[Rfam]
RNA sequence: AAAGGAUGAAUCCAAAGGGAUAGCAUGAUCCCAAAUAUUAUGAGAUAUUAAGGAAAUUAAGUUGUUAAUUAAGUAGCUAGGGACUUAAUUAGAUUUGGGAUCAAUGCGAUCCCUUUGGAUGCCUCCUC
Numbered sequence: 001a002a003a004g005g006a007u008g009a010a011u012c013c014a015a016a017g018g019g020a021u022a023g024c025a026u027g028a029u030c031c032c033a034a035a036u037a038u039u040a041u042g043a044g045a046u047a048u049u050a051a052g053g054a055a056a057u058u059a060a061g062u063u064g065u066u067a068a069u070u071a072a073g074u075a076g077c078u079a080g081g082g083a084c085u086u087a088a089u090u091a092g093a094u095u096u097g098g099g100a101u102c103a104a105u106g107c108g109a110u111c112c113c114u115u116u117g118g119a120u121g122c123c124u125c126c127u128c
Stems, first nucleotide, its partner, number of pairs: 003127004008122001010120012023107003026103006035095001
mir-393 microRNA precursor family: a 128-nucleotide sequence from Medicago truncatula. Rfam 15.1 lists 1,052 matches to the family in 221 species. On this family, see Kruszka et al., J Plant Physiol 2012: "Role of microRNAs and other sRNAs of plants in their changing environments". The organism belongs to Medicago, within Eukaryota.